RNA sequence: UUCUUAUGUUGUACAAGCCUUACAAUGUAAUUCUAGCAUUAACCUACUUUUAAUGUCACUAUGUAAUUCGUGCAUUACUGCUAGUCAACACGUAUAAUAUAUA
Numbered sequence: 001u002u003c004u005u006a007u008g009u010u011g012u013a014c015a016a017g018c019c020u021u022a023c024a025a026u027g028u029a030a031u032u033c034u035a036g037c038a039u040u041a042a043c044c045u046a047c048u049u050u051u052a053a054u055g056u057c058a059c060u061a062u063g064u065a066a067u068u069c070g071u072g073c074a075u076u077a078c079u080g081c082u083a084g085u086c087a088a089c090a091c092g093u094a095u096a097a098u099a100u101a102u103a
Base pairs, nucleotide, nucleotide: 005094006093007092008091009090011086014080015079021035022034024032025031026030036056037055039052041050042049061075062074063073064072065071